The family of this 171-nucleotide sequence from Vulgatibacter incomptus is "Group II catalytic intron D1-D4-3".
The match comes from Rfam's covariance-model search (102 bits).
[Rfam]
RNA sequence: GGGAGGGUGACCGACCGUGGGGAGGAAGCGGGGAGCGAAACCGCGGGCCGAUUUACAAGAACUGGAUCCGAGGCGUCGCCGAGCGGGACGAGCGGGCACGAGACCGCGAAGUUCCGAUGACCAAGUCUCAGGCGGCGUAAAUCCAGCGGUCGUGCGGUGAAGGACAGCGUU
Numbered sequence: 001g002g003g004a005g006g007g008u009g010a011c012c013g014a015c016c017g018u019g020g021g022g023a024g025g026a027a028g029c030g031g032g033g034a035g036c037g038a039a040a041c042c043g044c045g046g047g048c049c050g051a052u053u054u055a056c057a058a059g060a061a062c063u064g065g066a067u068c069c070g071a072g073g074c075g076u077c078g079c080c081g082a083g084c085g086g087g088a089c090g091a092g093c094g095g096g097c098a099c100g101a102g103a104c105c106g107c108g109a110a111g112u113u114c115c116g117a118u119g120a121c122c123a124a125g126u127c128u129c130a131g132g133c134g135g136c137g138u139a140a141a142u143c144c145a146g147c148g149g150u151c152g153u154g155c156g157g158u159g160a161a162g163g164a165c166a167g168c169g170u171u
Stems, first nucleotide, its partner, number of pairs: 001016002005012002028171001031168001036163001040158006046151005062146006073138003077134004082128002086114004092107004